[Rfam]
Rfam assigns this 98-nucleotide sequence from Ruminococcus bovis to the family "Purine riboswitch aptamer". Gene Ontology term of the family: purine nucleobase biosynthetic process. Taxonomically the source falls in Ruminococcus (Bacteria, Bacillati, Eubacteriales, Oscillospiraceae).
RNA sequence: AAUACCCAAGGUUAAAAAGAUUAUAUAAGUUCGAGAUACGGUCGAAUGUUUCUACUAACUGCCUCAAACAGUUAACUAUAAUCCCCAUUGGGGCAUAG
Numbered sequence: 001a002a003u004a005c006c007c008a009a010g011g012u013u014a015a016a017a018a019g020a021u022u023a024u025a026u027a028a029g030u031u032c033g034a035g036a037u038a039c040g041g042u043c044g045a046a047u048g049u050u051u052c053u054a055c056u057a058a059c060u061g062c063c064u065c066a067a068a069c070a071g072u073u074a075a076c077u078a079u080a081a082u083c084c085c086c087a088u089u090g091g092g093g094c095a096u097a098g
Base pairs, nucleotide, nucleotide: 019083020082021081022080023079024078025077029047030046031045032044033043034042056074057073058072059071060070061069